[Rfam]
RNA sequence: GAAAGCAUUUGGACUUAUGGCAAGCCCAAUUCCCCCGGGCAUUUCAUAGUGCCCCAUGAACAAACUGUGGCCCCCAACCACAGCCUGGUCUAUGCCCAUAGGCUACUGGUACUAAAGUGGUUUGCACAGAG
Numbered sequence: 001g002a003a004a005g006c007a008u009u010u011g012g013a014c015u016u017a018u019g020g021c022a023a024g025c026c027c028a029a030u031u032c033c034c035c036c037g038g039g040c041a042u043u044u045c046a047u048a049g050u051g052c053c054c055c056a057u058g059a060a061c062a063a064a065c066u067g068u069g070g071c072c073c074c075c076a077a078c079c080a081c082a083g084c085c086u087g088g089u090c091u092a093u094g095c096c097c098a099u100a101g102g103c104u105a106c107u108g109g110u111a112c113u114a115a116a117g118u119g120g121u122u123u124g125c126a127c128a129g130a131g
Stems, first nucleotide, its partner, number of pairs: 001055001005054001008051001015049006022042001024040001025038002068124003072120002080113001084109002086105006
A member of the RNA family "Small nucleolar RNA SNORA42/SNORA80 family" from Marmota marmota, 131 nucleotides long. The family has 21 seed sequences and 1,535 matches in Rfam 15.1. The organism belongs to Marmota marmota, within Eukaryota. Its family is annotated with RNA processing and nucleolus in the Gene Ontology. About the family: The members of this family belong to the H/ACA class of snoRNAs that guide the sites of modification of uridines to pseudouridines. Human ACA42 (SNORA42) was cloned from HeLa cells by immunoprecipitation with anti-GAR1 antibody. Its is predicted to guide the pseudouridylation of residues U109 and U572 of 18S rRNA. ACA42 shares the same host gene with ACA26, ACA46, ACA50. This family also includes mammalian snoRNA ACA67 (SNORA80) which was identified by computational screening and its expression in mouse experimentally verified by Northern blot and primer extension analysis.